[Rfam]
RNA sequence: AGGUCGGAAGGGGUGCGGUGGGACGCAUUCCAAGCAUUGACCGGAUUUUCCGCUCUGAUAGGCGCACCACGGCCCCGGUGGUGGCGCUU
Numbered sequence: 001a002g003g004u005c006g007g008a009a010g011g012g013g014u015g016c017g018g019u020g021g022g023a024c025g026c027a028u029u030c031c032a033a034g035c036a037u038u039g040a041c042c043g044g045a046u047u048u049u050c051c052g053c054u055c056u057g058a059u060a061g062g063c064g065c066a067c068c069a070c071g072g073c074c075c076c077g078g079u080g081g082u083g084g085c086g087c088u089u
Base pairs, nucleotide, nucleotide: 002042003041004040005039010031011030012029013028014027015026016025017024060089061088062087063086064085065083066082067081068080069079
Rhodo-rpoB RNA: an 89-nucleotide RNA sequence from Sulfitobacter sp. SK012. Pairs were carried over by alignment from the consensus structure, which is taken from published work. The match comes from Rfam's covariance-model search (56 bits).